[Rfam]
RNA sequence: ACCCUCCGGUUCCCUUUCCCAUCGGAUCUGAACACUGGUCUUGGUGGUCGUAUAAGGAGGAACAGUAAUACUGAAGCUGGUCUCACAGGGCUUGUAGUCAGCCAUGUAGAAUGUGGAUUAGUUUCAAACAAGA
Numbered sequence: 001a002c003c004c005u006c007c008g009g010u011u012c013c014c015u016u017u018c019c020c021a022u023c024g025g026a027u028c029u030g031a032a033c034a035c036u037g038g039u040c041u042u043g044g045u046g047g048u049c050g051u052a053u054a055a056g057g058a059g060g061a062a063c064a065g066u067a068a069u070a071c072u073g074a075a076g077c078u079g080g081u082c083u084c085a086c087a088g089g090g091c092u093u094g095u096a097g098u099c100a101g102c103c104a105u106g107u108a109g110a111a112u113g114u115g116g117a118u119u120a121g122u123u124u125c126a127a128a129c130a131a132g133a
Stems, first nucleotide, its partner, number of pairs: 003060005019047005025040004077121007093111001095109001
Dot-bracket structure: ..(((((...........(((((.((((........))))..)))))........)))))................(((((((.........(.(.............).)...)))))))............